[Rfam]
Annotation
A member of the RNA family "Glycine riboswitch aptamer" from Streptomyces sp. R302, 98 nucleotides long.
RNA sequence: CAGAUCUGAAAAGCGGGACACCCGUCGUGUCCCCACCCAAGGUGCAAGCCGGGGAUGCCCCCGGUGAACCUCUCAGGUUCCAUGACAGAUGGGGAGGA
Numbered sequence: 001c002a003g004a005u006c007u008g009a010a011a012a013g014c015g016g017g018a019c020a021c022c023c024g025u026c027g028u029g030u031c032c033c034c035a036c037c038c039a040a041g042g043u044g045c046a047a048g049c050c051g052g053g054g055a056u057g058c059c060c061c062c063g064g065u066g067a068a069c070c071u072c073u074c075a076g077g078u079u080c081c082a083u084g085a086c087a088g089a090u091g092g093g094g095a096g097g098a
Base pairs, nucleotide, nucleotide: 001093004090005089006088007087008086015033016032017031018030019029020028035078036077037076039073042072044070048065049064050063051062052061053060